[Rfam]
RNA: c-di-GMP-I-GGC riboswitch aptamer
RNA sequence: CCACGAAAGGGCAAACCAGCCGUGAGGCUGGGGCGCAAAGCCAUGGGCCACGAACUGGAUUUGAGGGGGUUCGGUUUGUGGUCGCCAGGCUGCCGAAG
Numbered sequence: 001c002c003a004c005g006a007a008a009g010g011g012c013a014a015a016c017c018a019g020c021c022g023u024g025a026g027g028c029u030g031g032g033g034c035g036c037a038a039a040g041c042c043a044u045g046g047g048c049c050a051c052g053a054a055c056u057g058g059a060u061u062u063g064a065g066g067g068g069g070u071u072c073g074g075u076u077u078g079u080g081g082u083c084g085c086c087a088g089g090c091u092g093c094c095g096a097a098g
Stems, first nucleotide, its partner, number of pairs: 001098001011036002016031006034084001039091004044087003047082016
Dot-bracket structure: (.........((...((((((....))))))..[))..((((.(((((((((((((((((((....)))))))))))))))).])))))))......)